Overview: MIR8024 microRNA precursor family: an 89-nucleotide RNA from Solanum commersonii. A search with the family's covariance model found it, with a score of 69 bits. Gene Ontology terms of the family: RISC complex and miRNA-mediated post-transcriptional gene silencing. The family's consensus secondary structure was predicted with RNAalifold.

RNA sequence: UUGGAGGAUUUGAAGACUACUUCAACUUGCAUACUUAGAGGAUUUGAAGAAUUCAACUUGCAAACUUGAAUAAGCUAAAGACUUCAACU
Dot-bracket structure: ((((((..((((........((((...((((...((.((............)).))..))))....)))).....))))..))))))..
Numbered sequence: 001u002u003g004g005a006g007g008a009u010u011u012g013a014a015g016a017c018u019a020c021u022u023c024a025a026c027u028u029g030c031a032u033a034c035u036u037a038g039a040g041g042a043u044u045u046g047a048a049g050a051a052u053u054c055a056a057c058u059u060g061c062a063a064a065c066u067u068g069a070a071u072a073a074g075c076u077a078a079a080g081a082c083u084u085c086a087a088c089u
Stems, first nucleotide, its partner, number of pairs: 001087006009079004021070004028062004035056002038053002